[Rfam]
RNA sequence: AAUUUAUAAAGAAUGAGGUGAGAGACUGGCUCAUUGACCCUCUAGCAACCCACUAUAAGUGCUGACUAAAGUUAGUAUUGGAAAAUUGGUGCUAAUUCCAGAUCUGAAGUCGACAAUGCUUUCAGAAAAUAUAAAAU
Numbered sequence: 001a002a003u004u005u006a007u008a009a010a011g012a013a014u015g016a017g018g019u020g021a022g023a024g025a026c027u028g029g030c031u032c033a034u035u036g037a038c039c040c041u042c043u044a045g046c047a048a049c050c051c052a053c054u055a056u057a058a059g060u061g062c063u064g065a066c067u068a069a070a071g072u073u074a075g076u077a078u079u080g081g082a083a084a085a086u087u088g089g090u091g092c093u094a095a096u097u098c099c100a101g102a103u104c105u106g107a108a109g110u111c112g113a114c115a116a117u118g119c120u121u122u123c124a125g126a127a128a129a130u131a132u133a134a135a136a137u
Stems, first nucleotide, its partner, number of pairs: 001137001003135006013043001015042004022032003026101004044093004049089002097129001103126006
SAM riboswitch aptamer (S box leader): a 137-nucleotide sequence from Flavobacterium sp. CS20.
The match comes from Rfam's covariance-model search (57 bits).
Taxonomically the source falls in Flavobacterium (Bacteria, Pseudomonadati, Flavobacteriia, Flavobacteriales).
Rfam 15.1 lists 9,625 matches to the family in 4,158 species.